[Rfam]
RNA sequence: AACGUAGCGCCAUACCCGAGCAGCAGGUGCAAGGAGGCAGCAUGUUCCUAGAUGUGGUGGUUCUCGCCGGUAUCGGCACCGUUGGGCUGAUGAUUCUGUUUGGUAUCGGGUUCACGUAUUUCGUCUGGAAGGAUGCGAGCAAGAAAAAGCCGCACUGAUCGCCGGACUCACGAGCACGCAAGGCAUUGGGGCGACUUCGGUCGCCCUUUUUUUCG
Dot-bracket structure: .........(.((...........................................(((.....)))................((.(....).)).........)).).................................................................((.(....)))....(((((((....))))))).........
The record is a 215-nucleotide sequence from Pseudomonas fulva, which matches "PhrS" in Rfam.
Taxonomically the source falls in Pseudomonas fulva (Bacteria, Pseudomonadota, Pseudomonadales, Pseudomonas).
Rfam's curators put it in the seed alignment.